[Rfam]
RNA sequence: GUGAUGGCAUUGACGAAGAGAAGUAGCUUAUACUCAAGCACUAAAGAGAGCUGAUGGUAGGUGCGAAUCAGUGUGCAAGAUAAGUGAAUGGACUUCUGAGCCCCAAACCGAACGAUCAUCUAGUAGGCUUUGGCGAGAUACCCACUCGUUGCAAAAGGGUAGCGUUGAUCAGACGUGAUAAGUGAGCUGUAUGAAUGUGCAGCUAAUAAAGGUGGUACCACGGGUUUCCUCGUCCUUUUC
Numbered sequence: 001g002u003g004a005u006g007g008c009a010u011u012g013a014c015g016a017a018g019a020g021a022a023g024u025a026g027c028u029u030a031u032a033c034u035c036a037a038g039c040a041c042u043a044a045a046g047a048g049a050g051c052u053g054a055u056g057g058u059a060g061g062u063g064c065g066a067a068u069c070a071g072u073g074u075g076c077a078a079g080a081u082a083a084g085u086g087a088a089u090g091g092a093c094u095u096c097u098g099a100g101c102c103c104c105a106a107a108c109c110g111a112a113c114g115a116u117c118a119u120c121u122a123g124u125a126g127g128c129u130u131u132g133g134c135g136a137g138a139u140a141c142c143c144a145c146u147c148g149u150u151g152c153a154a155a156a157g158g159g160u161a162g163c164g165u166u167g168a169u170c171a172g173a174c175g176u177g178a179u180a181a182g183u184g185a186g187c188u189g190u191a192u193g194a195a196u197g198u199g200c201a202g203c204u205a206a207u208a209a210a211g212g213u214g215g216u217a218c219c220a221c222g223g224g225u226u227u228c229c230u231c232g233u234c235c236u237u238u239u240c
Stems, first nucleotide, its partner, number of pairs: 007101002015096004026085006039075003050072006104132002106129001108127002134148003185204007209237004220233005
RNA: T-box leader